The record is a 150-nucleotide RNA from Populus tomentosa, which matches "MIR480 microRNA precursor family" in Rfam. On this family, see Lu et al., Plant Cell 2005: "Novel and mechanical stress-responsive MicroRNAs in Populus trichocarpa that are absent from Arabidopsis". The match comes from Rfam's covariance-model search (40 bits).

RNA sequence: UAAUUUAUUUAGAGUAAAUUUUUAUUUAUUUACACGUUACUGUUUAUAAUCAUCCGUUACAGAAAGCUCGAAUAAUAAUUGCAAGUCUUGUCGACAGCCAUGGAUGGACGGAUGGAUGAAUAACAUUGGUUAUAAUGUUUGAAACAAAAC
Numbered sequence: 001u002a003a004u005u006u007a008u009u010u011a012g013a014g015u016a017a018a019u020u021u022u023u024a025u026u027u028a029u030u031u032a033c034a035c036g037u038u039a040c041u042g043u044u045u046a047u048a049a050u051c052a053u054c055c056g057u058u059a060c061a062g063a064a065a066g067c068u069c070g071a072a073u074a075a076u077a078a079u080u081g082c083a084a085g086u087c088u089u090g091u092c093g094a095c096a097g098c099c100a101u102g103g104a105u106g107g108a109c110g111g112a113u114g115g116a117u118g119a120a121u122a123a124c125a126u127u128g129g130u131u132a133u134a135a136u137g138u139u140u141g142a143a144a145c146a147a148a149a150c
Stems, first nucleotide, its partner, number of pairs: 004148003008143002012139001018133002024126002027122005